[Rfam]
Rfam assigns this 129-nucleotide RNA from Scyliorhinus torazame to the family "Small nucleolar RNA SNORA27". Its Rfam clan is "SNORA27 clan". NCBI's taxonomy places the organism under Eukaryota, Opisthokonta, Deuterostomia, Scyliorhinidae, Scyliorhinus. Rfam links the family to the GO terms nucleolus and RNA processing. Rfam classes the family as an H/ACA-box small nucleolar RNA. A search with the family's covariance model found it, with a score of 73 bits.
RNA sequence: CCACCCCUCUUCACUUUACCAUUAAGACGUGUGGUGUCUACUGGUCAUUAAAGUGGGGUACAGGAAAAUGCCCCUUUAAAAACCCAAGCAGAUUUAUAUUUGACUUGGUUCCUGUCAGAGGGGACAGUU
Numbered sequence: 001c002c003a004c005c006c007c008u009c010u011u012c013a014c015u016u017u018a019c020c021a022u023u024a025a026g027a028c029g030u031g032u033g034g035u036g037u038c039u040a041c042u043g044g045u046c047a048u049u050a051a052a053g054u055g056g057g058g059u060a061c062a063g064g065a066a067a068a069u070g071c072c073c074c075u076u077u078a079a080a081a082a083c084c085c086a087a088g089c090a091g092a093u094u095u096a097u098a099u100u101u102g103a104c105u106u107g108g109u110u111c112c113u114g115u116c117a118g119a120g121g122g123g124a125c126a127g128u129u
Stems, first nucleotide, its partner, number of pairs: 035060005042051001044049001072122006085107001086105001089102005